[Rfam]
RNA sequence: GGUUUGUAGGCAGUGUAAUUAGCUGAUUGUAUCCAUUGCUUCACAAUCACUAACUUCACUGCCAUCAAAAC
Numbered sequence: 001g002g003u004u005u006g007u008a009g010g011c012a013g014u015g016u017a018a019u020u021a022g023c024u025g026a027u028u029g030u031a032u033c034c035a036u037u038g039c040u041u042c043a044c045a046a047u048c049a050c051u052a053a054c055u056u057c058a059c060u061g062c063c064a065u066c067a068a069a070a071c
Stems, first nucleotide, its partner, number of pairs: 003069004009063002012060004017055001019053004024049007
RNA: mir-34 microRNA precursor family